[Rfam]
RNA sequence: CGUCGAACAGGGCACACCCGCCGAAAGGCGGGGCCGCAAAGCCACGGGGCUAAAGGGGUGACCGCCCCCAUGCCGGCCGGGUUGCCGAG
Numbered sequence: 001c002g003u004c005g006a007a008c009a010g011g012g013c014a015c016a017c018c019c020g021c022c023g024a025a026a027g028g029c030g031g032g033g034c035c036g037c038a039a040a041g042c043c044a045c046g047g048g049g050c051u052a053a054a055g056g057g058g059u060g061a062c063c064g065c066c067c068c069c070a071u072g073c074c075g076g077c078c079g080g081g082u083u084g085c086c087g088a089g
Stems, first nucleotide, its partner, number of pairs: 012037002017032006040083004045079003048074003055068004

The record is an 89-nucleotide sequence from Caldinitratiruptor microaerophilus, which matches "c-di-GMP-I riboswitch aptamer" in Rfam. The source organism's lineage runs through Bacteria, Bacillati, Eubacteriales, Symbiobacteriaceae and Caldinitratiruptor. The match comes from Rfam's covariance-model search (76 bits).